The record is a 45-nucleotide RNA from Clostridium perfringens, which matches "PreQ1 (pre queuosine) riboswitch aptamer" in Rfam.
RNA sequence: UUGGUAGAGGUUCGUAACCAUCCCUCUAUAAAAAACUAAGGGCUG
Numbered sequence: 001u002u003g004g005u006a007g008a009g010g011u012u013c014g015u016a017a018c019c020a021u022c023c024c025u026c027u028a029u030a031a032a033a034a035a036c037u038a039a040g041g042g043c044u045g
Base pairs, nucleotide, nucleotide: 006027007026008025009024010023015038016037
This family is a bacterial riboswitch that binds to the metabolite preQ1, an intermediate in the biosynthesis of the modified nucleoside queuosine from GTP. One example of this riboswitch is located in the leader of the Bacillus subtilis ykvJKLM (queCDEF) operon which encodes four genes necessary for queuosine production. PreQ1 binding to the riboswitch aptamer is thought to induce premature transcription termination within the leader to down-regulate expression of these genes. The sequence is in the family's curated seed alignment. The organism belongs to Clostridium perfringens CPE, within Bacteria. For this family Rfam cites "Analysis of a preQ1-I riboswitch in effector-free and bound states reveals a metabolite-programmed nucleobase-stacking spine that controls gene regulation" (Schroeder et al., Nucleic Acids Res, 2020).